[Rfam]
RNA sequence: CCAACAUGGAUAACCUAGGAAGUCACUCUCCCCAGACUCUGUCCAAGUGGCCUAUGGGAGCAUAAGGCUCAGCCCCAUGAUGUACAGUCCCUUUCCACAACGGUGGAGAAGAAGAUGGGCCUUGAGUCUUAGCUUGCAUGUUCCUACAACUUCUCAGAGUCCUGUAGACAGUGACAUUGUUUCCAGGCAGGAAACAAUG
Numbered sequence: 001c002c003a004a005c006a007u008g009g010a011u012a013a014c015c016u017a018g019g020a021a022g023u024c025a026c027u028c029u030c031c032c033c034a035g036a037c038u039c040u041g042u043c044c045a046a047g048u049g050g051c052c053u054a055u056g057g058g059a060g061c062a063u064a065a066g067g068c069u070c071a072g073c074c075c076c077a078u079g080a081u082g083u084a085c086a087g088u089c090c091c092u093u094u095c096c097a098c099a100a101c102g103g104u105g106g107a108g109a110a111g112a113a114g115a116u117g118g119g120c121c122u123u124g125a126g127u128c129u130u131a132g133c134u135u136g137c138a139u140g141u142u143c144c145u146a147c148a149a150c151u152u153c154u155c156a157g158a159g160u161c162c163u164g165u166a167g168a169c170a171g172u173g174a175c176a177u178u179g180u181u182u183c184c185a186g187g188c189a190g191g192a193a194a195c196a197a198u199g
Base pairs, nucleotide, nucleotide: 001106002105003104005102007100008044009043010042011041012040015035016034018029019028020027047098048097049096050095056091057090058089059088060085062083063082064081065078133191134190135189136188137187139185153179159169160168161167